The family of this 80-nucleotide sequence from Beta vulgaris is "MIR397 microRNA precursor family".
RNA sequence: UGUGAAAACAUCAUUGAGUGCAGCGUUGAUGAAAUUCCACUAGGCCAUUUUUAUCAACGUUGCAUUCAAUUAUGUUUUUA
Numbered sequence: 001u002g003u004g005a006a007a008a009c010a011u012c013a014u015u016g017a018g019u020g021c022a023g024c025g026u027u028g029a030u031g032a033a034a035u036u037c038c039a040c041u042a043g044g045c046c047a048u049u050u051u052u053a054u055c056a057a058c059g060u061u062g063c064a065u066u067c068a069a070u071u072a073u074g075u076u077u078u079u080a
Base pairs, nucleotide, nucleotide: 006077007076008075009074010073011072013070014069015068016067017066018065019064020063021062022061023060024059025058026057027056028055030053031052032051033050034049
Dot-bracket structure: .....((((((.((((((((((((((((.(((((..............))))).)))))))))))))))).))))))...

The match comes from Rfam's covariance-model search (77 bits). Gene Ontology terms of the family: RISC complex and miRNA-mediated post-transcriptional gene silencing. On this family, see Mica et al., BMC Genomics 2009: "High throughput approaches reveal splicing of primary microRNA transcripts and tissue specific expression of mature microRNAs in Vitis vinifera".